[Rfam]
Description: Shown here is a 144-nucleotide RNA sequence from Schizosaccharomyces pombe, a member of the family "small nucleolar RNA snR92". The family's consensus secondary structure was predicted with RNAalifold.
RNA sequence: AAUCCAAAUAUUUUGCCUGCCAGCACUCCAUAAUUUAGUUUACGAGUGGUGGUAUACUGUAAUACUUGGUAUACAAAGAGUCGACUCCACCCUGGAUUAACUUUUCCUUAUGUAUAUUCAGGACUAAAUCAACGACUGACAAAC
Numbered sequence: 001a002a003u004c005c006a007a008a009u010a011u012u013u014u015g016c017c018u019g020c021c022a023g024c025a026c027u028c029c030a031u032a033a034u035u036u037a038g039u040u041u042a043c044g045a046g047u048g049g050u051g052g053u054a055u056a057c058u059g060u061a062a063u064a065c066u067u068g069g070u071a072u073a074c075a076a077a078g079a080g081u082c083g084a085c086u087c088c089a090c091c092c093u094g095g096a097u098u099a100a101c102u103u104u105u106c107c108u109u110a111u112g113u114a115u116a117u118u119c120a121g122g123a124c125u126a127a128a129u130c131a132a133c134g135a136c137u138g139a140c141a142a143a144c
Base pairs, nucleotide, nucleotide: 004069005068006067007066009064010063011062012061015057018054019053020052021051022050024048025047026046027045028044031042032041033040079137080136081135082134083133091122092121093120094119095118096117097116100113101112
Background: It is annotated as an H/ACA-box small nucleolar RNA.